[Rfam]
Shown here is a 112-nucleotide RNA from Podilymbus podiceps, a member of the family "drum RNA". Pairs were carried over by alignment from the consensus structure, which is taken from published work. Firmicutes, Bacteroidetes (1 example), Proteobacteria (2 examples), Spirochaetes (2 examples). The family's RNA type in Rfam is small RNA.
RNA sequence: AGGUGUGUAAGGGCUGAUGUGUGCCAACCUGGAUUUGUGCCCAAAACCUUGGGUUUAAUGUUUCCCACAGGCUGAAUCAAGGCUUUUAGAAAGCUGGUAGAAAACAUUAAAU
Numbered sequence: 001a002g003g004u005g006u007g008u009a010a011g012g013g014c015u016g017a018u019g020u021g022u023g024c025c026a027a028c029c030u031g032g033a034u035u036u037g038u039g040c041c042c043a044a045a046a047c048c049u050u051g052g053g054u055u056u057a058a059u060g061u062u063u064c065c066c067a068c069a070g071g072c073u074g075a076a077u078c079a080a081g082g083c084u085u086u087u088a089g090a091a092a093g094c095u096g097g098u099a100g101a102a103a104a105c106a107u108u109a110a111a112u
Base pairs, nucleotide, nucleotide: 001049002048003047004046011042012041013040014039017036019034020033022031025074026073058107059106060105081095082094083093084092